[Rfam]
RNA sequence: UAGGCAGAAGCUGAAAAGCCUGAAAAAGAGUAAGCA
Numbered sequence: 001u002a003g004g005c006a007g008a009a010g011c012u013g014a015a016a017a018g019c020c021u022g023a024a025a026a027a028g029a030g031u032a033a034g035c036a
Base pairs, nucleotide, nucleotide: 002021003020004019005018010035011034012033
RNA: DUF805b RNA
Organism: Microbacter margulisiae